[Rfam]
RNA: Aggregatibacter sRNA 41
Organism: Aggregatibacter actinomycetemcomitans
RNA sequence: UGCAAGACGGUUGCUGAGCUUGUCGAAGCAUGAAUCUUGCGUCGUUCUUAGUUAAAAUCACUUAUGGUUCGACAAGUUCACCGAUCGUGAUUUCAGGUUGAGGGACUAAAAAACGCCGUCAAUUCUGACCGCACUUUUCACAUAAAUAAAAAGCCGAAUAACAUAUUCGGCUUUUCGUU
Numbered sequence: 001u002g003c004a005a006g007a008c009g010g011u012u013g014c015u016g017a018g019c020u021u022g023u024c025g026a027a028g029c030a031u032g033a034a035u036c037u038u039g040c041g042u043c044g045u046u047c048u049u050a051g052u053u054a055a056a057a058u059c060a061c062u063u064a065u066g067g068u069u070c071g072a073c074a075a076g077u078u079c080a081c082c083g084a085u086c087g088u089g090a091u092u093u094c095a096g097g098u099u100g101a102g103g104g105a106c107u108a109a110a111a112a113a114c115g116c117c118g119u120c121a122a123u124u125c126u127g128a129c130c131g132c133a134c135u136u137u138u139c140a141c142a143u144a145a146a147u148a149a150a151a152a153g154c155c156g157a158a159u160a161a162c163a164u165a166u167u168c169g170g171c172u173u174u175u176c177g178u179u
Stems, first nucleotide, its partner, number of pairs: 001133003007088007015080013029066005093128005098122004103117002149175012